[Rfam]
RNA sequence: AGCGGGUAGGGACGCGAAGAUGUCGGACUGCGAGAAGCGGUCGCCCCCGGGACCUACACCCGGGCGGUCCGACGGAGCGAGUGGCGAGACCGGCCCUGUGGACA
Numbered sequence: 001a002g003c004g005g006g007u008a009g010g011g012a013c014g015c016g017a018a019g020a021u022g023u024c025g026g027a028c029u030g031c032g033a034g035a036a037g038c039g040g041u042c043g044c045c046c047c048c049g050g051g052a053c054c055u056a057c058a059c060c061c062g063g064g065c066g067g068u069c070c071g072a073c074g075g076a077g078c079g080a081g082u083g084g085c086g087a088g089a090c091c092g093g094c095c096c097u098g099u100g101g102a103c104a
Stems, first nucleotide, its partner, number of pairs: 002103001006099006013079003022073008039091002041087005
Background:
c-di-GMP-II-GAG riboswitch aptamer: a 104-nucleotide sequence. Rfam links the family to the GO terms cyclic-di-GMP binding and regulation of gene expression. For this family Rfam cites "Bioinformatic analysis of riboswitch structures uncovers variant classes with altered ligand specificity" (Weinberg et al., Proc Natl Acad Sci U S A, 2017). Its Rfam clan is "c-di-GMP_II riboswitch clan".